[Rfam]
RNA: U4 spliceosomal RNA
RNA sequence: AUCUUUGCGCUUGGGGCAAUGACGCAGCUAGUGAGGUUAUACCGAGGCGCGUCAAUUGCUGGUUGAAAACUAUUUCCAAACCCCCUUUGCGGCCCAUCCGGGCCUCAGAGAAUUUCUGGAAGGGCUCCCUAACUAGGGUAAAGCC
Numbered sequence: 001a002u003c004u005u006u007g008c009g010c011u012u013g014g015g016g017c018a019a020u021g022a023c024g025c026a027g028c029u030a031g032u033g034a035g036g037u038u039a040u041a042c043c044g045a046g047g048c049g050c051g052u053c054a055a056u057u058g059c060u061g062g063u064u065g066a067a068a069a070c071u072a073u074u075u076c077c078a079a080a081c082c083c084c085c086u087u088u089g090c091g092g093c094c095c096a097u098c099c100g101g102g103c104c105u106c107a108g109a110g111a112a113u114u115u116c117u118g119g120a121a122g123g124g125c126u127c128c129c130u131a132a133c134u135a136g137g138g139u140a141a142a143g144c145c
Stems, first nucleotide, its partner, number of pairs: 021053005027048003035043003085110005091104005123145004